[Rfam]
RNA sequence: UAUUUUUGUGCUAAAUCAAACUUUUCUAACUUUGACCGAGUUUAUACAAAAUGCAUCAACAUCUACAAUAACAAAUAAAUGCACUAUCAAGACAUAUGUCAUCAUGGAUUUACCGAAACUAAUUUAGUGUUGUUGAUGUUGAUGGAUUUUUCUACAAACUCGGCCAAAGCUAGAAAAGUUUGACUUAGGAUAAAACUAA
Numbered sequence: 001u002a003u004u005u006u007u008g009u010g011c012u013a014a015a016u017c018a019a020a021c022u023u024u025u026c027u028a029a030c031u032u033u034g035a036c037c038g039a040g041u042u043u044a045u046a047c048a049a050a051a052u053g054c055a056u057c058a059a060c061a062u063c064u065a066c067a068a069u070a071a072c073a074a075a076u077a078a079a080u081g082c083a084c085u086a087u088c089a090a091g092a093c094a095u096a097u098g099u100c101a102u103c104a105u106g107g108a109u110u111u112a113c114c115g116a117a118a119c120u121a122a123u124u125u126a127g128u129g130u131u132g133u134u135g136a137u138g139u140u141g142a143u144g145g146a147u148u149u150u151u152c153u154a155c156a157a158a159c160u161c162g163g164c165c166a167a168a169g170c171u172a173g174a175a176a177a178g179u180u181u182g183a184c185u186u187a188g189g190a191u192a193a194a195a196c197u198a199a
Stems, first nucleotide, its partner, number of pairs: 005194005011188004016183011031168004045154002048151004054144003058140006065133003073125004
Shown here is a 199-nucleotide sequence from Oryza meyeriana, a member of the family "MIR1435 microRNA precursor family". A search with the family's covariance model found it, with a score of 109 bits. The base pairs follow the family's consensus structure, which was predicted with RNAalifold. The organism belongs to Oryza meyeriana, within Eukaryota. Its family is annotated with miRNA-mediated post-transcriptional gene silencing and RISC complex in the Gene Ontology.